This 59-nucleotide RNA from Lactococcus lactis belongs to the Rfam family "Lacto-rpoB RNA". The sequence is in the family's curated seed alignment. The organism belongs to Lactococcus lactis subsp. lactis, within Bacteria.
RNA sequence: GUUUGUCAGCAAAAUCUGUGGGAUAUAUUGUCCCCAUAGGCUUUGUAAGCAACGAAACA
Numbered sequence: 001g002u003u004u005g006u007c008a009g010c011a012a013a014a015u016c017u018g019u020g021g022g023a024u025a026u027a028u029u030g031u032c033c034c035c036a037u038a039g040g041c042u043u044u045g046u047a048a049g050c051a052a053c054g055a056a057a058c059a
Base pairs, nucleotide, nucleotide: 008046010045013042015040016039017038018037019036020035021034022033